[Rfam]
RNA sequence: CCAAAGGCUCUUUUAAGAGCCACCCACAAAAUCUUAAAAAAGCUG
Numbered sequence: 001c002c003a004a005a006g007g008c009u010c011u012u013u014u015a016a017g018a019g020c021c022a023c024c025c026a027c028a029a030a031a032u033c034u035u036a037a038a039a040a041a042g043c044u045g
Stems, first nucleotide, its partner, number of pairs: 006021006

Histone 3' UTR stem-loop: a 45-nucleotide RNA from Pelodiscus sinensis. Rfam 15.1 lists 44,596 matches to the family in 976 species. For this family Rfam cites "The sequence of the stem and flanking sequences at the 3' end of histone mRNA are critical determinants for the binding of the stem-loop binding protein" (Williams and Marzluff, Nucleic Acids Res, 1995). Rfam links the family to the GO term mRNA 3'-end processing by stem-loop binding and cleavage.